[Rfam]
RNA sequence: UUGAGUGGAAAGCCGAGUCCUGCCGCCGCUCAGGGUCCCGCUAGAUGACGACGGCAGGGACGGGGGAACCACAGAUUGUGGGCACAGCAACCAGGUGCCCUUGGGGUGAAGUCCCGGGAGCGCAGCAGCGCGAACGGGGCCGGGCUAUCUCCAGCUCGAACCCGACAGCUCACCUCGUAGGCUCAACGGAGAGGUACC
Numbered sequence: 001u002u003g004a005g006u007g008g009a010a011a012g013c014c015g016a017g018u019c020c021u022g023c024c025g026c027c028g029c030u031c032a033g034g035g036u037c038c039c040g041c042u043a044g045a046u047g048a049c050g051a052c053g054g055c056a057g058g059g060a061c062g063g064g065g066g067a068a069c070c071a072c073a074g075a076u077u078g079u080g081g082g083c084a085c086a087g088c089a090a091c092c093a094g095g096u097g098c099c100c101u102u103g104g105g106g107u108g109a110a111g112u113c114c115c116g117g118g119a120g121c122g123c124a125g126c127a128g129c130g131c132g133a134a135c136g137g138g139g140c141c142g143g144g145c146u147a148u149c150u151c152c153a154g155c156u157c158g159a160a161c162c163c164g165a166c167a168g169c170u171c172a173c174c175u176c177g178u179a180g181g182c183u184c185a186a187c188g189g190a191g192a193g194g195u196a197c198c
Stems, first nucleotide, its partner, number of pairs: 011183004018059008060178006070103002104163003112139004142157004
The family of this 198-nucleotide sequence from Actinotalea bogoriensis is "c-di-AMP riboswitch aptamer (ydaO/yuaA leader)".
NCBI's taxonomy places the organism under Bacteria, Actinomycetota, Actinomycetes, Micrococcales, Actinotalea bogoriensis.